[Rfam]
RNA: Small Cajal body-specific RNA 7
RNA sequence: UGGAAAUGAUGAAACAGAGAUAAUUGGGUGUUGAAUGUUGUAUGAGUGAACCUUUUUAAAUGAGUGUUUUAACUAGUUUAUAGUCUAAAUGUAAAAUUUUGUGUAAUAUUUGUGUGUGUGUGUGUGUGUGUGUGUAUGCGUGCACUAAGAGGCUAUAGAAAGGGGGCGCUGACUGGUGAUGCUGAUAUUGGAGUGCAUCUGAGGCUGUUGUAGAAAUAUAUGGGUGCUGAUUACAACAUUGCCGAUGAUUACAACCCAAGAAUAGCUCACCUGCCUAGCCUAGCACCCUAAAAUCUCUAACAGGUUCAUUAAAAAUGGUCCUGUGAUCUGAUCCAA
Numbered sequence: 001u002g003g004a005a006a007u008g009a010u011g012a013a014a015c016a017g018a019g020a021u022a023a024u025u026g027g028g029u030g031u032u033g034a035a036u037g038u039u040g041u042a043u044g045a046g047u048g049a050a051c052c053u054u055u056u057u058a059a060a061u062g063a064g065u066g067u068u069u070u071a072a073c074u075a076g077u078u079u080a081u082a083g084u085c086u087a088a089a090u091g092u093a094a095a096a097u098u099u100u101g102u103g104u105a106a107u108a109u110u111u112g113u114g115u116g117u118g119u120g121u122g123u124g125u126g127u128g129u130g131u132g133u134g135u136a137u138g139c140g141u142g143c144a145c146u147a148a149g150a151g152g153c154u155a156u157a158g159a160a161a162g163g164g165g166g167c168g169c170u171g172a173c174u175g176g177u178g179a180u181g182c183u184g185a186u187a188u189u190g191g192a193g194u195g196c197a198u199c200u201g202a203g204g205c206u207g208u209u210g211u212a213g214a215a216a217u218a219u220a221u222g223g224g225u226g227c228u229g230a231u232u233a234c235a236a237c238a239u240u241g242c243c244g245a246u247g248a249u250u251a252c253a254a255c256c257c258a259a260g261a262a263u264a265g266c267u268c269a270c271c272u273g274c275c276u277a278g279c280c281u282a283g284c285a286c287c288c289u290a291a292a293a294u295c296u297c298u299a300a301c302a303g304g305u306u307c308a309u310u311a312a313a314a315a316u317g318g319u320c321c322u323g324u325g326a327u328c329u330g331a332u333c334c335a336a
Stems, first nucleotide, its partner, number of pairs: 001335004206238008215228001217226003